The family of this 230-nucleotide RNA sequence from Listeria fleischmannii is "T-box leader". Taxonomically the source falls in Listeria fleischmannii (Bacteria, Bacillati, Bacillota, Listeria).
[Rfam]
RNA sequence: AUAAAAGCUUUGAAAAGGAAGAGUAAAUUAUUUUUCGUUUUUAUAGAGAGAAAGUGGUUGGUGAAAACUUUCAAACGAGAUAAUUGAAGGUAGCCUUGGAGUUGCUUUUCUGAAAUUUGAGUAGGAAAAGCCGGUGAAGUGUCAUCGUUAUUUGAAUGAAGUGCUCAAAUUCUAUGUUCAUUUUGAGUAAAAAGGUGGUACCGCGAAUCCAAACUCUUUUCGUCCUUUUA
Numbered sequence: 001a002u003a004a005a006a007g008c009u010u011u012g013a014a015a016a017g018g019a020a021g022a023g024u025a026a027a028u029u030a031u032u033u034u035u036c037g038u039u040u041u042u043a044u045a046g047a048g049a050g051a052a053a054g055u056g057g058u059u060g061g062u063g064a065a066a067a068c069u070u071u072c073a074a075a076c077g078a079g080a081u082a083a084u085u086g087a088a089g090g091u092a093g094c095c096u097u098g099g100a101g102u103u104g105c106u107u108u109u110c111u112g113a114a115a116u117u118u119g120a121g122u123a124g125g126a127a128a129a130g131c132c133g134g135u136g137a138a139g140u141g142u143c144a145u146c147g148u149u150a151u152u153u154g155a156a157u158g159a160a161g162u163g164c165u166c167a168a169a170u171u172c173u174a175u176g177u178u179c180a181u182u183u184u185g186a187g188u189a190a191a192a193a194g195g196u197g198g199u200a201c202c203g204c205g206a207a208u209c210c211a212a213a214c215u216c217u218u219u220u221c222g223u224c225c226u227u228u229u230a
Base pairs, nucleotide, nucleotide: 007102008101015097016096017095018094026085027084028083029082030081031080039075040074041073050072051071052070053069054068055067105130106129107128108127109126110125111124132147133146134145135144136143164187165186166185167184168183169182192227193226194225195224203223204222205221206220207219